[Rfam]
Notes
The family of this 134-nucleotide RNA sequence from Kyrpidia spormannii is "c-di-AMP riboswitch aptamer (ydaO/yuaA leader)". The source organism's lineage runs through Bacteria, Bacilli, Caryophanales, Alicyclobacillaceae and Kyrpidia.

RNA sequence: GGUCAUGAUGCGCUGAGUUCCGGACAACGGAAGCGGGGGACCCAGGACUUUGGGGUGAAUCCGGCCAAGGCCGGUAGGGUGGCUCUCGACCCGAACCCGUCAGCUAACCCCGUAAGCGAAAGGAGAGUGGGUGG
Numbered sequence: 001g002g003u004c005a006u007g008a009u010g011c012g013c014u015g016a017g018u019u020c021c022g023g024a025c026a027a028c029g030g031a032a033g034c035g036g037g038g039g040a041c042c043c044a045g046g047a048c049u050u051u052g053g054g055g056u057g058a059a060u061c062c063g064g065c066c067a068a069g070g071c072c073g074g075u076a077g078g079g080u081g082g083c084u085c086u087c088g089a090c091c092c093g094a095a096c097c098c099g100u101c102a103g104c105u106a107a108c109c110c111c112g113u114a115a116g117c118g119a120a121a122g123g124a125g126a127g128u129g130g131g132u133g134g
Base pairs, nucleotide, nucleotide: 011118012117013116014115018032019031020030021029022028033113034112035111036110037109038108043052044051053098054097055096061074062073063072064071077092078091079090080089